[Rfam]
This 215-nucleotide sequence from Thermoanaerobacterium sp. RBIITD belongs to the Rfam family "HNH endonuclease-associated RNA and ORF (HEARO) RNA".
For this family Rfam cites "Exceptional structured noncoding RNAs revealed by bacterial metagenome analysis" (Weinberg et al., Nature, 2009).
A search with the family's covariance model found it, with a score of 145 bits.
RNA sequence: GUCAACUACCCCCGCUUAUAGAAGCGGAGGCUUGAAAGAAAGCCUUGGUUGAUUAGCCUGAGUCACAAAAGUGGCUACGUUAUGCAAGAAUGAUAUAGGCACCAUAGGAUACUCCACAAGUCCUGUGCUCUGCGUGCAGUGGUUAAACAUCUCUGAAGGGGUAGGAGAAGUGCUGCUGCUGAAAACCUUGCAUAACAUUGGCGAUGUGGACUUAC
Numbered sequence: 001g002u003c004a005a006c007u008a009c010c011c012c013c014g015c016u017u018a019u020a021g022a023a024g025c026g027g028a029g030g031c032u033u034g035a036a037a038g039a040a041a042g043c044c045u046u047g048g049u050u051g052a053u054u055a056g057c058c059u060g061a062g063u064c065a066c067a068a069a070a071g072u073g074g075c076u077a078c079g080u081u082a083u084g085c086a087a088g089a090a091u092g093a094u095a096u097a098g099g100c101a102c103c104a105u106a107g108g109a110u111a112c113u114c115c116a117c118a119a120g121u122c123c124u125g126u127g128c129u130c131u132g133c134g135u136g137c138a139g140u141g142g143u144u145a146a147a148c149a150u151c152u153c154u155g156a157a158g159g160g161g162u163a164g165g166a167g168a169a170g171u172g173c174u175g176c177u178g179c180u181g182a183a184a185a186c187c188u189u190g191c192a193u194a195a196c197a198u199u200g201g202c203g204a205u206g207u208g209g210a211c212u213u214a215c
Base pairs, nucleotide, nucleotide: 001053002052003051004050005049006048007047008046010030011029012027013026016023017022031042032041033040056202057201058200060198061076062075063074064073065072079196080195081194082193083192084191085190086189087188088187099133100132103127104126105125106124107123108122109121110120113210114209115208116207117206118205136179137178138177139176140175141174142173143172147171148170150168151167152166153165154164156162